[Rfam]
RNA sequence: AGCUUACCGAUGAUGUAAAAAAAAUGUCUGAACUAUUGAUUGUCUAGUGAUAAGUUUUUGUGAGCUGAGGUAAGCA
Number, nucleotide and partner (000 for none) at each position: 001a000002g075003c074004u073005u072006a071007c070008c069009g000010a000011u000012g000013a000014u000015g000016u000017a000018a000019a000020a000021a000022a000023a000024a000025u000026g000027u000028c000029u000030g000031a000032a000033c000034u000035a000036u000037u000038g000039a000040u000041u000042g000043u000044c000045u000046a000047g000048u000049g000050a000051u000052a000053a000054g000055u000056u000057u000058u000059u000060g000061u000062g000063a000064g000065c000066u000067g000068a000069g008070g007071u006072a005073a004074g003075c002076a000